[Rfam]
Notes:
Bacteroides-1 RNA: a 69-nucleotide RNA from Phocaeicola coprocola. By type it is a small RNA. Taxonomically the source falls in Phocaeicola coprocola (Bacteria, Bacteroidota, Bacteroidales, Phocaeicola).
RNA sequence: AUGCAGACGCUUAAAACACUUGGAUGUAUGUGAAUAUGUGUAAGUGUUACCUGUUCCAGAAGUGGAAAA
Numbered sequence: 001a002u003g004c005a006g007a008c009g010c011u012u013a014a015a016a017c018a019c020u021u022g023g024a025u026g027u028a029u030g031u032g033a034a035u036a037u038g039u040g041u042a043a044g045u046g047u048u049a050c051c052u053g054u055u056c057c058a059g060a061a062g063u064g065g066a067a068a069a
Stems, first nucleotide, its partner, number of pairs: 015048003020043003024039001026037004051059003
Dot-bracket structure: ..............(((..(((.(.((((....)))).).)))..)))..(((...)))..........